[Rfam]
RNA sequence: AGCUUAUCAAGAGUGGCGGAGGGAACUGGCCCAAUGAAGCCCGGCAACCUACUGAAAGGAGUAAGGUGCUAAUUCCAGCAAAAUGGUGUCCAUUUUGAAAGAUAAGGU
Numbered sequence: 001a002g003c004u005u006a007u008c009a010a011g012a013g014u015g016g017c018g019g020a021g022g023g024a025a026c027u028g029g030c031c032c033a034a035u036g037a038a039g040c041c042c043g044g045c046a047a048c049c050u051a052c053u054g055a056a057a058g059g060a061g062u063a064a065g066g067u068g069c070u071a072a073u074u075c076c077a078g079c080a081a082a083a084u085g086g087u088g089u090c091c092a093u094u095u096u097g098a099a100a101g102a103u104a105a106g107g108u
Base pairs, nucleotide, nucleotide: 001108003106004105005104006103007102008101013042015041016040017039021032022031023030026078027077028076029075043070044069045068046067048066049065050063051062052061053060074100079097080096081095082094083093084092
Dot-bracket structure: (.((((((....(.(((...(((..[[[[)))......))))((((.((((((......)))).))))))...(]]]]((((((.......))))))..))))))).)
Overview:
A member of the RNA family "SAM riboswitch aptamer (S box leader)" from Bacillus manliponensis, 108 nucleotides long. Its family is annotated with regulation of gene expression in the Gene Ontology. Pairs were carried over by alignment from the consensus structure, which is taken from published work. About the family: The SAM riboswitch is found upstream of a number of genes which code for proteins involved in methionine or cysteine biosynthesis in Gram-positive bacteria. The SAM riboswitch acts at the level of transcription termination control. The predicted structure consists of a complex stem-loop region followed by a single stem loop terminator region.